[Rfam]
RNA sequence: UGAUAGCUGUGAAGCGUGAGGUUGCUGCCCUGAUGGCAGGUUUUCCGUGGAGCGAAUGUCAAGUUAGGAAACUGGCGACAA
Numbered sequence: 001u002g003a004u005a006g007c008u009g010u011g012a013a014g015c016g017u018g019a020g021g022u023u024g025c026u027g028c029c030c031u032g033a034u035g036g037c038a039g040g041u042u043u044u045c046c047g048u049g050g051a052g053c054g055a056a057u058g059u060c061a062a063g064u065u066a067g068g069a070a071a072c073u074g075g076c077g078a079c080a081a
Stems, first nucleotide, its partner, number of pairs: 014048003018045004025039005057080004063076004

The record is an 81-nucleotide RNA, which matches "S10-Clostridia ribosomal protein leader" in Rfam.
It is annotated as a cis-regulatory leader.
Rfam's curators put it in the seed alignment.
The literature on the family includes a 2020 paper in BMC Microbiol by Eckert and Weinberg, "Discovery of 20 novel ribosomal leader candidates in bacteria and archaea".